About this RNA
The record is a 136-nucleotide RNA from Sanguibacter suaedae, which matches "ZMP/ZTP riboswitch aptamer (pfl RNA motif)" in Rfam. On this family, see Trausch et al., Chem Biol 2015: "Metal Ion-Mediated Nucleobase Recognition by the ZTP Riboswitch". Taxonomically the source falls in Sanguibacter (Bacteria, Actinomycetota, Micrococcales, Sanguibacteraceae). Pairs were carried over by alignment from the consensus structure, which is taken from published work. Gene Ontology terms of the family: one-carbon metabolic process and regulation of purine nucleotide biosynthetic process. It scores 47 bits against the family's covariance model.
RNA sequence: UUUUCACGUCGCGACUGGCGCAGCCGAGCCGCGGGACCGACCUGGUGACAGGGCGGAUCCUGAGGAUCGCAUGGUGGAACACCACCGGGGAGCGGCACGUUCUUCCGACUUCGGGUCGUUCGCCUGGGCCCCGGUC
Numbered sequence: 001u002u003u004u005c006a007c008g009u010c011g012c013g014a015c016u017g018g019c020g021c022a023g024c025c026g027a028g029c030c031g032c033g034g035g036a037c038c039g040a041c042c043u044g045g046u047g048a049c050a051g052g053g054c055g056g057a058u059c060c061u062g063a064g065g066a067u068c069g070c071a072u073g074g075u076g077g078a079a080c081a082c083c084a085c086c087g088g089g090g091a092g093c094g095g096c097a098c099g100u101u102c103u104u105c106c107g108a109c110u111u112c113g114g115g116u117c118g119u120u121c122g123c124c125u126g127g128g129c130c131c132c133g134g135u136c
Stems, first nucleotide, its partner, number of pairs: 005099001008096005015089002017124004074085004113131005